A member of the RNA family "mir-399 microRNA precursor family" from Apium graveolens, 109 nucleotides long. A reference for the family is Jones-Rhoades and Bartel (2004), "Computational Identification of Plant MicroRNAs and Their Targets, Including a Stress-Induced miRNA", Mol Cell. The base pairs follow the family's consensus structure, which was predicted with PFOLD. It scores 57 bits against the family's covariance model. Gene Ontology terms of the family: RISC complex and miRNA-mediated post-transcriptional gene silencing.
RNA sequence: GGAUGAAUGACUGGUUGAUUCUCCUUUGGCAAACAGUUAAUCAAGCUAUACCAACGUAUGUAUAGAAUAUAAUGAUUUUGGCAAAGGAGAAUUGCCCUGCCAUUUAGUA
Numbered sequence: 001g002g003a004u005g006a007a008u009g010a011c012u013g014g015u016u017g018a019u020u021c022u023c024c025u026u027u028g029g030c031a032a033a034c035a036g037u038u039a040a041u042c043a044a045g046c047u048a049u050a051c052c053a054a055c056g057u058a059u060g061u062a063u064a065g066a067a068u069a070u071a072a073u074g075a076u077u078u079u080g081g082c083a084a085a086g087g088a089g090a091a092u093u094g095c096c097c098u099g100c101c102a103u104u105u106a107g108u109a
Stems, first nucleotide, its partner, number of pairs: 005105005011099001013097002016094004021089004027083002030080004